[Rfam]
RNA sequence: AGCCACGUGAUGAGCGUAGAGUGAACUAUUCUUUCGCCUUUUACUAAAGAAUAUAGUGUGCUCGCCGCAAGUAGUGGCAUAUGCCUAUUUUUGGAGGGCUUCUUCCCAAAAGGGU
Number, nucleotide and partner (000 for none) at each position: 001a000002g000003c077004c076005a075006c074007g000008u067009g066010a000011u064012g063013a062014g061015c060016g059017u058018a057019g000020a000021g000022u000023g000024a000025a000026c000027u053028a052029u051030u050031c049032u048033u047034u046035c000036g000037c000038c000039u000040u000041u000042u000043a000044c000045u000046a034047a033048a032049g031050a030051a029052u028053a027054u000055a000056g000057u018058g017059u016060g015061c014062u013063c012064g011065c000066c009067g008068c000069a000070a000071g000072u000073a000074g006075u005076g004077g003078c000079a000080u000081a000082u000083g000084c000085c000086u000087a000088u000089u000090u000091u000092u000093g000094g000095a000096g000097g115098g000099c113100u112101u111102c000103u000104u000105c000106c000107c000108a000109a000110a000111a101112g100113g099114g000115u097
The family of this 115-nucleotide RNA from Camellia sinensis is "U5 spliceosomal RNA". Rfam's curators write: U5 RNA is a component of both types of known spliceosome. The precise function of this molecule is unknown, though it is known that the 5' loop is required for splice site selection and p220 binding, and that both the 3' stem-loop and the Sm site are important for Sm protein binding and cap methylation. The literature on the family includes a 1990 paper in Nucleic Acids Res by Thomas et al., "The spliceosomal snRNAs of Caenorhabditis elegans". A search with the family's covariance model found it, with a score of 71 bits. Rfam classes the family as a spliceosomal small nuclear RNA.